[Rfam]
This 99-nucleotide RNA sequence from Channa argus belongs to the Rfam family "Z30 small nucleolar RNA". A reference for the family is Galardi et al. (2002), "Purified box C/D snoRNPs are able to reproduce site-specific 2'-O-methylation of target RNA in vitro", Mol Cell Biol. It scores 84 bits against the family's covariance model. Gene Ontology terms of the family: nucleolus and RNA processing. By type it is a C/D-box small nucleolar RNA. The organism belongs to Channa, within Eukaryota.
RNA sequence: GUGCAAUGAUGAGUGUUGAAGGGACUGAUCUGGUAUUGCUUCCCUCUGGGGAGAGCUCUGACCAGGGAAUGAUCUCACUUUAAUCUUCUCUCUGAGCAG
Numbered sequence: 001g002u003g004c005a006a007u008g009a010u011g012a013g014u015g016u017u018g019a020a021g022g023g024a025c026u027g028a029u030c031u032g033g034u035a036u037u038g039c040u041u042c043c044c045u046c047u048g049g050g051g052a053g054a055g056c057u058c059u060g061a062c063c064a065g066g067g068a069a070u071g072a073u074c075u076c077a078c079u080u081u082a083a084u085c086u087u088c089u090c091u092c093u094g095a096g097c098a099g
Stems, first nucleotide, its partner, number of pairs: 003097002038056004